[Rfam]
Annotation:
The record is a 61-nucleotide RNA from Ficedula albicollis, which matches "Small nucleolar RNA Z39" in Rfam. It is annotated as a C/D-box small nucleolar RNA. It scores 54 bits against the family's covariance model. The family has 5 seed sequences and 935 matches in Rfam 15.1. Gene Ontology terms of the family: RNA processing and nucleolus.
RNA sequence: GCACGCGUGAUGUGACGGAGCAGGAUGAGAAACUGUGAUGCUGUAAACGCUUUCUGAUGUG
Number, nucleotide and partner (000 for none) at each position: 001g000002c061003a060004c059005g058006c000007g000008u000009g000010a000011u000012g053013u000014g051015a000016c049017g000018g000019a000020g000021c043022a042023g041024g000025a039026u038027g000028a000029g000030a000031a000032a000033c000034u000035g000036u000037g000038a026039u025040g000041c023042u022043g021044u000045a000046a000047a000048c000049g016050c000051u014052u000053u012054c000055u000056g000057a000058u005059g004060u003061g002